RNA sequence: UUAUUCCUUUUUACUGUGUGCAUACCUCUGAAAAUUGGUUCUAAAGAGGUAUGGGGCAUGGAAAAAUGAGGCAA
Numbered sequence: 001u002u003a004u005u006c007c008u009u010u011u012u013a014c015u016g017u018g019u020g021c022a023u024a025c026c027u028c029u030g031a032a033a034a035u036u037g038g039u040u041c042u043a044a045a046g047a048g049g050u051a052u053g054g055g056g057c058a059u060g061g062a063a064a065a066a067u068g069a070g071g072c073a074a
Stems, first nucleotide, its partner, number of pairs: 010065003014061006021053003025049005030042001
RNA: mir-202 microRNA precursor family